The family of this 89-nucleotide sequence from Salirhabdus euzebyi is "c-di-GMP-I riboswitch aptamer". The source organism's lineage runs through Bacteria, Bacillati, Bacillota, Bacilli and Salirhabdus. The match comes from Rfam's covariance-model search (78 bits).
RNA sequence: GUGAUAAAUUGGCAAACCAGGACGAAAGUCUGGGACGCAAAGCCACGGGUCUAAUGAAUCAUGUAUUCUAUGAUCGCCGGGUUACCGCA
Numbered sequence: 001g002u003g004a005u006a007a008a009u010u011g012g013c014a015a016a017c018c019a020g021g022a023c024g025a026a027a028g029u030c031u032g033g034g035a036c037g038c039a040a041a042g043c044c045a046c047g048g049g050u051c052u053a054a055u056g057a058a059u060c061a062u063g064u065a066u067u068c069u070a071u072g073a074u075c076g077c078c079g080g081g082u083u084a085c086c087g088c089a
Base pairs, nucleotide, nucleotide: 012038013037017033018032019031020030022029023028041083042082043081044080046079047078048077049074050073051072056068057067058066059065